Group II catalytic intron D1-D4-6: a 240-nucleotide sequence. The sequence is in the family's curated seed alignment. Rfam's curators write: Group II introns are found in rRNA, tRNA and mRNA of organelles in fungi, plants and protists, and also in mRNA in bacteria.
[Rfam]
RNA sequence: AGAGUCCCGUCAGCAAAGGAGGAGCAAUCUAUGCUGUAGCGAACAUUGAGUGACCAAGCCCGGUGACGGGUAACACUAAGCGUAUGGAGCGAAUCCCGUAGGCCGAAAUGCAUUUAGCGUGAAGCGAUUGAGCUCCGACAGAUUAAUAUUCCACUUAAGAUGAUGGUCUAUUCAAGUCAGAAAUCGAAACUGCAAAUCCCGACAAGCGAGGGAUGGGUGAAGUGGCGGAGUCUAAGAGCU
Numbered sequence: 001a002g003a004g005u006c007c008c009g010u011c012a013g014c015a016a017a018g019g020a021g022g023a024g025c026a027a028u029c030u031a032u033g034c035u036g037u038a039g040c041g042a043a044c045a046u047u048g049a050g051u052g053a054c055c056a057a058g059c060c061c062g063g064u065g066a067c068g069g070g071u072a073a074c075a076c077u078a079a080g081c082g083u084a085u086g087g088a089g090c091g092a093a094u095c096c097c098g099u100a101g102g103c104c105g106a107a108a109u110g111c112a113u114u115u116a117g118c119g120u121g122a123a124g125c126g127a128u129u130g131a132g133c134u135c136c137g138a139c140a141g142a143u144u145a146a147u148a149u150u151c152c153a154c155u156u157a158a159g160a161u162g163a164u165g166g167u168c169u170a171u172u173c174a175a176g177u178c179a180g181a182a183a184u185c186g187a188a189a190c191u192g193c194a195a196a197u198c199c200c201g202a203c204a205a206g207c208g209a210g211g212g213a214u215g216g217g218u219g220a221a222g223u224g225g226c227g228g229a230g231u232c233u234a235a236g237a238g239c240u
Stems, first nucleotide, its partner, number of pairs: 011036005018030003024207002039090002044086003047082002049077004056071001060069003129234001130232001132231006151225002157223001159185003164179004191220001192218002196214005